The record is a 73-nucleotide RNA from Alloscardovia theropitheci, which matches "tRNA" in Rfam.
Taxonomically the source falls in Alloscardovia (Bacteria, Bacillati, Actinomycetota, Bifidobacteriales).
RNA sequence: GCCACCUUAGCUCAGUUGGUAGAGCGUCUCACUCGUAAUGAGAAGGUCGCCGGUCCGAUUCCGGCAGGUGGCU
Numbered sequence: 001g002c003c004a005c006c007u008u009a010g011c012u013c014a015g016u017u018g019g020u021a022g023a024g025c026g027u028c029u030c031a032c033u034c035g036u037a038a039u040g041a042g043a044a045g046g047u048c049g050c051c052g053g054u055c056c057g058a059u060u061c062c063g064g065c066a067g068g069u070g071g072c073u
Stems, first nucleotide, its partner, number of pairs: 001072007010025004027043005049065005